[Rfam]
RNA sequence: UCGCUCAGCUGAAUUAGUGUUUGGCUAGGCGGGAAUUUAAACAUAAACACUAAGGUAUAUAUUAUGUCUUUAUCAGCUACUGAAAAAGCUGCAAUCGUUGCAGAAUACGCUCAAUCUGAA
Numbered sequence: 001u002c003g004c005u006c007a008g009c010u011g012a013a014u015u016a017g018u019g020u021u022u023g024g025c026u027a028g029g030c031g032g033g034a035a036u037u038u039a040a041a042c043a044u045a046a047a048c049a050c051u052a053a054g055g056u057a058u059a060u061a062u063u064a065u066g067u068c069u070u071u072a073u074c075a076g077c078u079a080c081u082g083a084a085a086a087a088g089c090u091g092c093a094a095u096c097g098u099u100g101c102a103g104a105a106u107a108c109g110c111u112c113a114a115u116c117u118g119a120a
Stems, first nucleotide, its partner, number of pairs: 007026006051072005
Dot-bracket structure: ......((((((........))))))........................(((((............)))))................................................
RNA: Ribosomal S15 leader
Organism: Thalassotalea sp. ND16A